RNA sequence: AACUCCUCCUGCUAUAGUACCUGAAUGAUAAAGUAAAAUAAAUGUCAUUCUAAAAUCUCGCGAAUUGCUGGAAACCCUUUUUAAUUUAAAUAUGACAAUCAGCAAGAAAGCCUUUUAUUAAGCUAAUAUAUACUAGCUAAUUAAGGAAUCUUCAGAGACUAUGCACGAGACAAUUAAAGGCGCUUUGUUUUUAAUUGAAGAGAUAGUCCGAUCAUGGUAGUGAUACCAUG
Numbered sequence: 001a002a003c004u005c006c007u008c009c010u011g012c013u014a015u016a017g018u019a020c021c022u023g024a025a026u027g028a029u030a031a032a033g034u035a036a037a038a039u040a041a042a043u044g045u046c047a048u049u050c051u052a053a054a055a056u057c058u059c060g061c062g063a064a065u066u067g068c069u070g071g072a073a074a075c076c077c078u079u080u081u082u083a084a085u086u087u088a089a090a091u092a093u094g095a096c097a098a099u100c101a102g103c104a105a106g107a108a109a110g111c112c113u114u115u116u117a118u119u120a121a122g123c124u125a126a127u128a129u130a131u132a133c134u135a136g137c138u139a140a141u142u143a144a145g146g147a148a149u150c151u152u153c154a155g156a157g158a159c160u161a162u163g164c165a166c167g168a169g170a171c172a173a174u175u176a177a178a179g180g181c182g183c184u185u186u187g188u189u190u191u192u193a194a195u196u197g198a199a200g201a202g203a204u205a206g207u208c209c210g211a212u213c214a215u216g217g218u219a220g221u222g223a224u225a226c227c228a229u230g
Stems, first nucleotide, its partner, number of pairs: 028039002056170004062164001066104006077094001079092001105151002111145001113143001121138004155209001157208005173195009215228005

Record summary
This 230-nucleotide RNA sequence from Xylaria flabelliformis belongs to the Rfam family "Group I catalytic intron". The family's consensus secondary structure is taken from published work. NCBI's taxonomy places the organism under Eukaryota, Opisthokonta, leotiomyceta, Xylariales, Xylaria.